[Rfam]
This 79-nucleotide sequence from Cohnella herbarum belongs to the Rfam family "ZMP/ZTP riboswitch aptamer (pfl RNA motif)".
RNA sequence: UCAACUAUGUGUCACUGGCGGAACAUGGGUAACCAUGAGGGAGCGCAUAGAUAUCUAGCCGUACGCCUGGGCAGAGGUA
Numbered sequence: 001u002c003a004a005c006u007a008u009g010u011g012u013c014a015c016u017g018g019c020g021g022a023a024c025a026u027g028g029g030u031a032a033c034c035a036u037g038a039g040g041g042a043g044c045g046c047a048u049a050g051a052u053a054u055c056u057a058g059c060c061g062u063a064c065g066c067c068u069g070g071g072c073a074g075a076g077g078u079a
Base pairs, nucleotide, nucleotide: 003052005050006049007048008047009046010045011044012043015040016039017067018066019065020064025036026035027034028033056074058072059071060070
The family's consensus secondary structure is taken from published work.